[Rfam]
RNA: Bacterial large subunit ribosomal RNA, nucleotides 2704 to 2964
Organism: Thermanaerovibrio acidaminovorans
RNA sequence: GGGGAUUUGAGGGGAUCUGCUCCUAGUACGAGAGGACCGGAGUGGACGAACCGCUGGUGUACCGGUUGUGGCGCCAGCUGCAUAAGCCGGGUAGCCAUGUUCGGAUCGGAUAACCGCUGAAGGCAUCUAAGCGGGAAACCGGCCCCGAGAUGAGAUCCCCCACUGGGCAACCAGGUAAGGCAUCCUGCAGAUGACAGGAUAGAUAGGCCGGAGGUGUAAGCGGUGCGAGCCGUUGAGCUGACCGGUACUAAUAUGCCGAGG
Numbered sequence: 001g002g003g004g005a006u007u008u009g010a011g012g013g014g015a016u017c018u019g020c021u022c023c024u025a026g027u028a029c030g031a032g033a034g035g036a037c038c039g040g041a042g043u044g045g046a047c048g049a050a051c052c053g054c055u056g057g058u059g060u061a062c063c064g065g066u067u068g069u070g071g072c073g074c075c076a077g078c079u080g081c082a083u084a085a086g087c088c089g090g091g092u093a094g095c096c097a098u099g100u101u102c103g104g105a106u107c108g109g110a111u112a113a114c115c116g117c118u119g120a121a122g123g124c125a126u127c128u129a130a131g132c133g134g135g136a137a138a139c140c141g142g143c144c145c146c147g148a149g150a151u152g153a154g155a156u157c158c159c160c161c162a163c164u165g166g167g168c169a170a171c172c173a174g175g176u177a178a179g180g181c182a183u184c185c186u187g188c189a190g191a192u193g194a195c196a197g198g199a200u201a202g203a204u205a206g207g208c209c210g211g212a213g214g215u216g217u218a219a220g221c222g223g224u225g226c227g228a229g230c231c232g233u234u235g236a237g238c239u240g241a242c243c244g245g246u247a248c249u250a251a252u253a254u255g256c257c258g259a260g261g
Base pairs, nucleotide, nucleotide: 001160002159003158004157005156006155007154008153011146012145013144014143017045018044019043020042021041022040023039047103048102049101050100051099055097056096057095062090063089064088065087066086067082068081069080070079071078072077107141108140109139114134115133116132117131118130163174164173165172176259179257180256181255182254183199184198185197186196187195204250205249206248207246208245209244210243211242213239214238220233221232222231223230224229